[Rfam]
RNA sequence: ACUCUUGUUCCAAAAAUCGUCAUCAAAGCUUACACACAGAAAACAUCCAUCUGGAUAUUUUCAUUCACAUACUGCUUUGGGAGAAAGUCCCCGGACACCUUAGACUCUCCAGUCUGAGCAUGCGGAAACGCGCCGCCACAGAAGCACUGCGGCUCAUCCUCGCCAGCACAGGAUUGCCUCUGCUUUCCACCUACCUACCGUCUGCACUCUUUUGCAACGUACCAUGCCUGAGCUACUUGGACGCUAAUCGAGAGGCCACAUGGAUGAUGAUAUGAGUCCGAACUCUUGAGAUGCCCCAGGCAGCAGAAGGCCGUGCUUGCAAUUGAGGAGGUGAGUAUCUGGGGAGUAGUUGAACCUAACAUGGCCGAGGGCAAUUUCGUCGUAGCGGAUAGUUAUACGAUUGCCCAGGAUAGCUGCUGGCAACAGCAGGGACUCUUGAGUAACUCAAUGGGGCUUAUUUUGGAUUCGAGGG
Number, nucleotide and partner (000 for none) at each position: 001a000002c472003u471004c470005u469006u468007g000008u000009u464010c463011c462012a461013a000014a000015a402016a401017u400018c399019g398020u397021c000022a000023u081024c079025a078026a077027a076028g075029c074030u000031u000032a000033c000034a000035c000036a000037c000038a000039g062040a061041a060042a059043a058044c000045a056046u055047c054048c053049a000050u000051c000052u000053g048054g047055a046056u045057a000058u043059u042060u041061u040062c039063a000064u000065u000066c000067a000068c000069a000070u000071a000072c000073u000074g029075c028076u027077u026078u025079g024080g000081g023082a000083g000084a000085a456086a455087g454088u000089c453090c452091c451092c450093g000094g000095a000096c000097a000098c000099c000100u000101u000102a000103g000104a000105c000106u000107c000108u000109c000110c000111a000112g000113u000114c000115u000116g000117a000118g000119c000120a000121u132122g131123c130124g129125g000126a000127a000128a000129c124130g123131c122132g121133c000134c000135g000136c000137c000138a000139c000140a000141g000142a000143a000144g000145c000146a000147c000148u000149g000150c000151g000152g000153c000154u000155c000156a000157u000158c000159c000160u000161c000162g000163c000164c000165a000166g000167c000168a000169c000170a000171g000172g000173a000174u000175u000176g000177c000178c000179u000180c000181u000182g000183c000184u000185u000186u000187c000188c000189a000190c000191c000192u000193a000194c000195c000196u000197a000198c000199c000200g000201u000202c000203u000204g000205c000206a000207c000208u000209c000210u000211u000212u000213u000214g000215c000216a000217a000218c000219g000220u000221a000222c000223c000224a000225u000226g000227c000228c000229u000230g000231a000232g000233c000234u000235a000236c000237u000238u000239g000240g000241a000242c000243g000244c000245u000246a000247a000248u000249c000250g000251a000252g000253a000254g000255g000256c000257c000258a000259c000260a000261u000262g000263g000264a000265u000266g000267a000268u000269g000270a000271u000272a000273u000274g000275a000276g000277u000278c000279c000280g000281a000282a000283c000284u000285c000286u000287u000288g000289a000290g000291a000292u000293g000294c000295c000296c000297c000298a000299g000300g000301c000302a000303g000304c000305a000306g000307a000308a000309g000310g000311c000312c367313g366314u000315g000316c363317u000318u361319g360320c000321a000322a000323u000324u000325g000326a000327g000328g000329a357330g356331g355332u354333g000334a000335g000336u000337a000338u000339c349340u348341g347342g000343g000344g000345a000346g000347u341348a340349g339350u000351u000352g000353a000354a332355c331356c330357u329358a000359a000360c319361a318362u000363g316364g000365c000366c313367g312368a000369g000370g000371g000372c000373a000374a000375u000376u000377u000378c000379g000380u000381c000382g000383u000384a000385g000386c000387g000388g000389a000390u000391a000392g000393u000394u000395a000396u000397a020398c019399g018400a017401u016402u015403g000404c440405c000406c438407a437408g436409g435410a000411u000412a000413g000414c000415u000416g000417c000418u000419g000420g000421c000422a000423a000424c000425a000426g000427c000428a000429g000430g000431g000432a000433c000434u000435c409436u408437u407438g406439a000440g404441u000442a000443a000444c000445u000446c000447a000448a000449u000450g092451g091452g090453g089454c087455u086456u085457a000458u000459u000460u000461u012462g011463g010464a009465u000466u000467c000468g006469a005470g004471g003472g002
Shown here is a 472-nucleotide sequence from Microthyrium microscopicum, a member of the family "RNase MRP". Its family is annotated with ribonuclease MRP complex, rRNA processing and ribonuclease MRP activity in the Gene Ontology. Rfam classes the family as a ribozyme. Lineage of the source: Eukaryota > Fungi > Dikarya > saccharomyceta > Microthyrium. It scores 90 bits against the family's covariance model.